A member of the RNA family "Plastid-ycf2 5UTR RNA" from Lactuca sativa, 73 nucleotides long. About the family: Plastid ycf2 is a non-coding RNA (ncRNA) recognised in plastids. It was found in the prime untranslated region (5UTR) of ycf2 genes, it presents a tRNA-like motif which suggests it can be involved in mRNA maturation, particularly involved in defining the precise 5' end of the transcript. For this family Rfam cites "Retrograde signaling in plants: A critical review focusing on the GUN pathway and beyond" (Richter et al., Plant Commun, 2023). The family's RNA type in Rfam is cis-regulatory element.
RNA sequence: GUGCAUCUAGUAGGAAUUGAACCUACGAAUUCGUCAAUUAUGAGUUGGGUGCUUUAACCAUUCAACCACGUUC
Number, nucleotide and partner (000 for none) at each position: 001g000002u000003g000004c000005a000006u000007c000008u070009a000010g026011u025012a024013g023014g022015a000016a000017u000018u000019g000020a000021a000022c014023c013024u012025a011026c010027g000028a000029a000030u000031u000032c000033g000034u000035c000036a000037a000038u000039u000040a000041u068042g067043a000044g066045u065046u064047g063048g062049g061050u060051g059052c000053u000054u000055u000056a000057a000058c000059c051060a050061u049062u048063c047064a046065a045066c044067c042068a041069c000070g008071u000072u000073c000